[Rfam]
RNA sequence: ACGUAGCUUGAAGUCGUUGGUACAUAUGAAAUAAUGCCUGCUGCCUUGGCAUAACAACAAGAAGGCAUAAAUAUCGCUUAGUAGUAAUCAUAUAAUUUAAGGAUGGUUUUAGUACGUAGGCAUUGCAGAACCCUCAACGUGAAGAAGGUUCUAAUAAAGCAGUGAAUCGUGCAUGCUAGACAUUACCCGACCACACAAGGUGAUGGCGGACCUAGUAUCUUUCGAAGAAAGAUCAAAAAAGAGCGAAU
Number, nucleotide and partner (000 for none) at each position: 001a000002c000003g000004u000005a000006g000007c000008u000009u000010g000011a000012a000013g000014u000015c000016g000017u000018u000019g000020g000021u000022a000023c000024a000025u000026a000027u000028g000029a000030a000031a000032u000033a000034a000035u000036g000037c000038c000039u000040g000041c000042u067043g066044c065045c064046u063047u062048g000049g000050c000051a000052u000053a000054a000055c000056a000057a000058c000059a000060a000061g000062a047063a046064g045065g044066c043067a042068u000069a000070a000071a000072u000073a000074u246075c245076g244077c243078u000079u000080a000081g000082u000083a000084g000085u000086a000087a000088u000089c000090a000091u000092a000093u000094a000095a000096u000097u000098u000099a000100a000101g000102g000103a000104u235105g234106g233107u000108u000109u000110u000111a000112g172113u171114a170115c169116g168117u000118a000119g000120g000121c164122a163123u162124u161125g160126c159127a152128g151129a150130a149131c148132c000133c000134u000135c000136a000137a000138c000139g000140u000141g000142a000143a000144g000145a000146a000147g000148g131149u130150u129151c128152u127153a000154a000155u000156a000157a000158a000159g126160c125161a124162g123163u122164g121165a000166a000167u000168c116169g115170u114171g113172c112173a000174u217175g216176c215177u214178a213179g212180a000181c000182a000183u000184u000185a000186c000187c000188c000189g000190a000191c000192c000193a000194c000195a000196c000197a000198a000199g000200g000201u000202g000203a000204u000205g000206g000207c000208g000209g000210a000211c000212c179213u178214a177215g176216u175217a174218u000219c000220u000221u000222u000223c000224g000225a000226a000227g000228a000229a000230a000231g000232a000233u106234c105235a104236a000237a000238a000239a000240a000241g000242a000243g077244c076245g075246a074247a000248u000
RNA: R2 RNA element
Organism: Drosophila rhopaloa